[Rfam]
RNA sequence: CAAGGCCCUCAGUGGCCGGGGUGGAAUGCUUGCCUUGUCACCGCGGCAACAAAGCAAGCAUUCCGCCAGGCUGCUCAUGCUGCCCGC
Numbered sequence: 001c002a003a004g005g006c007c008c009u010c011a012g013u014g015g016c017c018g019g020g021g022u023g024g025a026a027u028g029c030u031u032g033c034c035u036u037g038u039c040a041c042c043g044c045g046g047c048a049a050c051a052a053a054g055c056a057a058g059c060a061u062u063c064c065g066c067c068a069g070g071c072u073g074c075u076c077a078u079g080c081u082g083c084c085c086g087c
Base pairs, nucleotide, nucleotide: 004084005083006082012074013073014072015071016070017069020067021066022065023064024063025062026061027060028059029058030057031056032055033054037050038049041046
RNA: mir-9195 microRNA precursor family
Organism: Cnephaeus nilssonii